[Rfam]
RNA sequence: AAUACCUUUAAUUUAGUCCUGUGAGGCUAAGAAGGGUAUAAAUAAUCUAUGUUAAUUUAUACAUAGGGAUAUUUAUACCUUCUUGCCCAUAGGCAGAAGGUUUUUUUAUU
Numbered sequence: 001a002a003u004a005c006c007u008u009u010a011a012u013u014u015a016g017u018c019c020u021g022u023g024a025g026g027c028u029a030a031g032a033a034g035g036g037u038a039u040a041a042a043u044a045a046u047c048u049a050u051g052u053u054a055a056u057u058u059a060u061a062c063a064u065a066g067g068g069a070u071a072u073u074u075a076u077a078c079c080u081u082c083u084u085g086c087c088c089a090u091a092g093g094c095a096g097a098a099g100g101u102u103u104u105u106u107u108a109u110u
Base pairs, nucleotide, nucleotide: 005035006034007033008032009031013030014029015028016027017026018025042072043071044070046067047066048065049064050063051062052061075103077101078100079099080098081097082096084095085094086093087092

PyrR binding site: a 110-nucleotide sequence from Thermohalobacter berrensis. By type it is a cis-regulatory element. Rfam's curators write: This family represents the PyrR binding site and terminator structure. This RNA structure is found upstream of a variety of genes involved in pyrimidine biosynthesis and transport. The alignment also includes a portion of the antiterminator structure.